[Rfam]
RNA sequence: CUUCAGGGAGCCGAGCCACAGGGGAUGCUCGACGUCGCGUUCCUGUCCGUAGGUCGCCAGAAGUGCCUGCGCCUC
Dot-bracket structure: .............(.((.....)).)......(....((...(((.(.(....).).)))...))...)......
A member of the RNA family "ASpks TB sRNA" from Streptomyces calvus, 75 nucleotides long. The match comes from Rfam's covariance-model search (70 bits). The literature on the family includes a 2009 paper in Mol Microbiol by Arnvig and Young, "Identification of small RNAs in Mycobacterium tuberculosis". It is annotated as an antisense RNA. NCBI's taxonomy places the organism under Bacteria, Actinomycetes, Kitasatosporales, Streptomycetaceae, Streptomyces.